[Rfam]
RNA sequence: CCCGUCCACCCCGUGGACGCCCUGACCAUAAGGCCCGGACCCGGCUACCCUGACGGCGUGCGCACUCCCCGGGAAGCGGCACCGCGUCCCGGGGUCACGCAAAGCCGACAGCCGUCGCACCCGAGGGAGCCCUUCCAUG
Numbered sequence: 001c002c003c004g005u006c007c008a009c010c011c012c013g014u015g016g017a018c019g020c021c022c023u024g025a026c027c028a029u030a031a032g033g034c035c036c037g038g039a040c041c042c043g044g045c046u047a048c049c050c051u052g053a054c055g056g057c058g059u060g061c062g063c064a065c066u067c068c069c070c071g072g073g074a075a076g077c078g079g080c081a082c083c084g085c086g087u088c089c090c091g092g093g094g095u096c097a098c099g100c101a102a103a104g105c106c107g108a109c110a111g112c113c114g115u116c117g118c119a120c121c122c123g124a125g126g127g128a129g130c131c132c133u134u135c136c137a138u139g
Stems, first nucleotide, its partner, number of pairs: 059101004065093003104118002107116003

A member of the RNA family "Streptomyces-metH RNA" from Streptomyces sp. DSM 15324, 139 nucleotides long. The base pairs follow the family's consensus structure, which is taken from published work.